[Rfam]
RNA sequence: GUUUUUGUCCACUAGUAAACAGGGCCUUUUAUAAGACCCAUAGAACAAUUUUUGGAAAACCUCUCUUGCGAGAGGUUA
Numbered sequence: 001g002u003u004u005u006u007g008u009c010c011a012c013u014a015g016u017a018a019a020c021a022g023g024g025c026c027u028u029u030u031a032u033a034a035g036a037c038c039c040a041u042a043g044a045a046c047a048a049u050u051u052u053u054g055g056a057a058a059a060c061c062u063c064u065c066u067u068g069c070g071a072g073a074g075g076u077u078a
Stems, first nucleotide, its partner, number of pairs: 022039003026035003058077008
This 78-nucleotide RNA from Caenorhabditis angaria belongs to the Rfam family "SmY spliceosomal RNA".